[Rfam]
RNA sequence: UUGGACAGUUUUUAUACAAACCUCCAAAAGAUUAGCCAAAAUAGAUUCGGCGCAUGAAUUUUUUUUGCUUCUUGCGCUACGUCAGUUUACUUACUACAAGUAAUGGGUAGUAUGUACGCCGGCUAUUAGCUCACUCUGAGAAA
Numbered sequence: 001u002u003g004g005a006c007a008g009u010u011u012u013u014a015u016a017c018a019a020a021c022c023u024c025c026a027a028a029a030g031a032u033u034a035g036c037c038a039a040a041a042u043a044g045a046u047u048c049g050g051c052g053c054a055u056g057a058a059u060u061u062u063u064u065u066u067g068c069u070u071c072u073u074g075c076g077c078u079a080c081g082u083c084a085g086u087u088u089a090c091u092u093a094c095u096a097c098a099a100g101u102a103a104u105g106g107g108u109a110g111u112a113u114g115u116a117c118g119c120c121g122g123c124u125a126u127u128a129g130c131u132c133a134c135u136c137u138g139a140g141a142a143a
Stems, first nucleotide, its partner, number of pairs: 035077002039073002043069002046067001049064002052061001081123003085119002088116003092112006099104001127143001130140003
Shown here is a 143-nucleotide sequence from Pseudomonas fluorescens, a member of the family "Pseudomonas sRNA P14". Pairs were carried over by alignment from the consensus structure, which was predicted with WAR. Lineage of the source: Bacteria > Gammaproteobacteria > Pseudomonadales > Pseudomonas > Pseudomonas fluorescens. By type it is a small RNA. It scores 98 bits against the family's covariance model.